[Rfam]
RNA sequence: GUUCCUAAAUCGCUGAAUCCUGAUAAGGAACGGGGGAACCAUUGACGAUAACUUUUGGUUAUCGUAUGGGGUGAAUCCAUCAAGCAGAUAUUUAUUUGCCUGGUGGUAGGGCAAUCUCGUUGCCCUAAUCCGUCAGCUAACCUCGUAAGCGUUGAAUGAGAGAGGAU
Numbered sequence: 001g002u003u004c005c006u007a008a009a010u011c012g013c014u015g016a017a018u019c020c021u022g023a024u025a026a027g028g029a030a031c032g033g034g035g036g037a038a039c040c041a042u043u044g045a046c047g048a049u050a051a052c053u054u055u056u057g058g059u060u061a062u063c064g065u066a067u068g069g070g071g072u073g074a075a076u077c078c079a080u081c082a083a084g085c086a087g088a089u090a091u092u093u094a095u096u097u098g099c100c101u102g103g104u105g106g107u108a109g110g111g112c113a114a115u116c117u118c119g120u121u122g123c124c125c126u127a128a129u130c131c132g133u134c135a136g137c138u139a140a141c142c143u144c145g146u147a148a149g150c151g152u153u154g155a156a157u158g159a160g161a162g163a164g165g166a167u
Stems, first nucleotide, its partner, number of pairs: 011151004018029003030146006040068002069131003077106006109125004
RNA: c-di-AMP riboswitch aptamer (ydaO/yuaA leader)
Organism: Paenibacillus sp. GP183